[Rfam]
RNA: Small nucleolar RNA Z279/snoR105/snoR108
RNA sequence: GGGAUGUGAUGAGUGGUCUAUACUUGCACGUAAAAUAUGCGAGAUGGGUGUCCGCCUAGCCUGUUACGACACUGGCGAGAUGGGUGUCCGCCUAGCCUGUUACGACACUGGGACACUCAAAUAUCACCAAUCUGAUCCC
Numbered sequence: 001g002g003g004a005u006g007u008g009a010u011g012a013g014u015g016g017u018c019u020a021u022a023c024u025u026g027c028a029c030g031u032a033a034a035a036u037a038u039g040c041g042a043g044a045u046g047g048g049u050g051u052c053c054g055c056c057u058a059g060c061c062u063g064u065u066a067c068g069a070c071a072c073u074g075g076c077g078a079g080a081u082g083g084g085u086g087u088c089c090g091c092c093u094a095g096c097c098u099g100u101u102a103c104g105a106c107a108c109u110g111g112g113a114c115a116c117u118c119a120a121a122u123a124u125c126a127c128c129a130a131u132c133u134g135a136u137c138c139c
Base pairs, nucleotide, nucleotide: 001139002138003137004136014129015128016127017126023079024078025077026076027075081119082118083117084116085115086114087113088112097111098110099109